[Rfam]
RNA: BsrG
Organism: Bacillus subtilis
RNA sequence: UACAGUAAGUUUUGCUCACUCGAGGGAGUCUUGCUCAUCCCCUAAUGAAAGGGGUGAUGCUAUGUCAACAUUCCAGGCAUUAAUGCUAAUGCUUGCAAUCGGGUCGUUUAUAAUCGCCCUAUUGACGUAUAUAGAAAAAAUAGACCUCCCUUGAGCCUCAGAACCUGAAGGGAUAGGCCUACCUAGAACCACAUCGAGCAAGCCCUUUGAUGGGCAACUUUUUGUACAGAGCCGGGGUGUUGGUAGCACCUCGG
Number, nucleotide and partner (000 for none) at each position: 001u226002a225003c224004a223005g222006u000007a220008a219009g218010u000011u216012u201013u200014g199015c198016u197017c196018a000019c155020u154021c153022g152023a151024g150025g149026g148027a000028g145029u144030c143031u142032u000033g000034c000035u057036c056037a055038u000039c054040c053041c052042c051043u050044a000045a000046u000047g000048a000049a000050a043051g042052g041053g040054g039055u037056g036057a035058u000059g000060c000061u000062a000063u000064g126065u125066c124067a123068a122069c000070a120071u000072u000073c000074c000075a000076g000077g092078c091079a090080u000081u000082a000083a000084u000085g000086c000087u000088a000089a000090u079091g078092c077093u000094u000095g000096c000097a000098a000099u000100c000101g118102g117103g000104u000105c000106g000107u000108u000109u000110a000111u000112a000113a000114u000115c000116g000117c102118c101119c000120u070121a000122u068123u067124g066125a065126c064127g000128u000129a000130u000131a000132u000133a000134g000135a000136a000137a000138a000139a000140a000141u000142a031143g030144a029145c028146c000147u000148c026149c025150c024151u023152u022153g021154a020155g019156c000157c000158u000159c000160a000161g000162a000163a000164c000165c186166u185167g184168a000169a000170g000171g000172g000173a000174u000175a000176g000177g000178c000179c000180u000181a000182c000183c000184u167185a166186g165187a000188a000189c000190c000191a000192c000193a000194u000195c000196g017197a016198g015199c014200a013201a012202g215203c214204c213205c212206u000207u000208u000209g000210a000211u000212g205213g204214g203215c202216a011217a000218c009219u008220u007221u000222u005223u004224g003225u002226a001227c000228a000229g000230a000231g000232c254233c253234g252235g251236g250237g249238u248239g247240u246241u245242g000243g000244u000245a241246g240247c239248a238249c237250c236251u235252c234253g233254g232